[Rfam]
RNA sequence: UUUCGGUUGGGGUAAACUUCAUGAAAGUGAAGGACGCUAAAGUCAUGGAUCUAAGGCUUGAAGCUGCUGUUUAGUCAGUAUUAAGCUAUGAUGGCCAGACUACAAGA
Numbered sequence: 001u002u003u004c005g006g007u008u009g010g011g012g013u014a015a016a017c018u019u020c021a022u023g024a025a026a027g028u029g030a031a032g033g034a035c036g037c038u039a040a041a042g043u044c045a046u047g048g049a050u051c052u053a054a055g056g057c058u059u060g061a062a063g064c065u066g067c068u069g070u071u072u073a074g075u076c077a078g079u080a081u082u083a084a085g086c087u088a089u090g091a092u093g094g095c096c097a098g099a100c101u102a103c104a105a106g107a
Base pairs, nucleotide, nucleotide: 012037013036017032018031019030020029021028022027041101042100043099044098046097047096048095049092050091051090056086057085058084059083060082061081
RNA: c-di-GMP-I riboswitch aptamer
Organism: Desulfosporosinus acididurans